[Rfam]
RNA sequence: GGAGUUGGACAGGCCAUCGCCCCCGCACUUACUUUUCUAUGGGUAGAUUUUUCCUGGAUAAAAGUAAGUGCGGGGGAGGAAAGUCCGGGCUCCACAGGGCAGGACGCUGGGUAACGCCCAGCGGGGGCGACCCCGGGAAAGUGCCACAGAAAACAGACCGCCCCGCACUUACUUUUAUUUACGCCCCGCACUUACUUUUUUAAGACUCUAAGGCUCAUAGCUGAUCUGCAGGGACAUAAUUCCUUAAUAAUCAGCCAGAAGCCCUUUGGAAAAGUAAGUGCUGGGCGUUGAUAAAAGUAAGUGCGGGGUAAGGGUGAAACGGUGGGGUAAGAGCCCACCAGCUGUCGCGGCGACGCGGCAGGCUUGGCAAACCCCGUCCGGAGCAAGGCCAAAUAGGAAGGCGCUUGAGGCCGGCCCGGCCGAAGCCUUCGGGUAGGCUGCUGGAGGCCUGGAGCAAUCCCGGUCCCAGAUGAAUGAUGGCCCGUUUUCCAGCGGAAAACCGACAGAACCCGGCUUAUCGUCCAACUCCCCUU
Numbered sequence: 001g002g003a004g005u006u007g008g009a010c011a012g013g014c015c016a017u018c019g020c021c022c023c024c025g026c027a028c029u030u031a032c033u034u035u036u037c038u039a040u041g042g043g044u045a046g047a048u049u050u051u052u053c054c055u056g057g058a059u060a061a062a063a064g065u066a067a068g069u070g071c072g073g074g075g076g077a078g079g080a081a082a083g084u085c086c087g088g089g090c091u092c093c094a095c096a097g098g099g100c101a102g103g104a105c106g107c108u109g110g111g112u113a114a115c116g117c118c119c120a121g122c123g124g125g126g127g128c129g130a131c132c133c134c135g136g137g138a139a140a141g142u143g144c145c146a147c148a149g150a151a152a153a154c155a156g157a158c159c160g161c162c163c164c165g166c167a168c169u170u171a172c173u174u175u176u177a178u179u180u181a182c183g184c185c186c187c188g189c190a191c192u193u194a195c196u197u198u199u200u201u202a203a204g205a206c207u208c209u210a211a212g213g214c215u216c217a218u219a220g221c222u223g224a225u226c227u228g229c230a231g232g233g234a235c236a237u238a239a240u241u242c243c244u245u246a247a248u249a250a251u252c253a254g255c256c257a258g259a260a261g262c263c264c265u266u267u268g269g270a271a272a273a274g275u276a277a278g279u280g281c282u283g284g285g286c287g288u289u290g291a292u293a294a295a296a297g298u299a300a301g302u303g304c305g306g307g308g309u310a311a312g313g314g315u316g317a318a319a320c321g322g323u324g325g326g327g328u329a330a331g332a333g334c335c336c337a338c339c340a341g342c343u344g345u346c347g348c349g350g351c352g353a354c355g356c357g358g359c360a361g362g363c364u365u366g367g368c369a370a371a372c373c374c375c376g377u378c379c380g381g382a383g384c385a386a387g388g389c390c391a392a393a394u395a396g397g398a399a400g401g402c403g404c405u406u407g408a409g410g411c412c413g414g415c416c417c418g419g420c421c422g423a424a425g426c427c428u429u430c431g432g433g434u435a436g437g438c439u440g441c442u443g444g445a446g447g448c449c450u451g452g453a454g455c456a457a458u459c460c461c462g463g464u465c466c467c468a469g470a471u472g473a474a475u476g477a478u479g480g481c482c483c484g485u486u487u488u489c490c491a492g493c494g495g496a497a498a499a500c501c502g503a504c505a506g507a508a509c510c511c512g513g514c515u516u517a518u519c520g521u522c523c524a525a526c527u528c529c530c531c532u533u
Stems, first nucleotide, its partner, number of pairs: 001529010011518001012482007020076017081516003085513005090383004097417004102379005107121005122135005136374002141372002143368003158313002160309020321339006341363001342361008387439004397430006409421004446465004451460003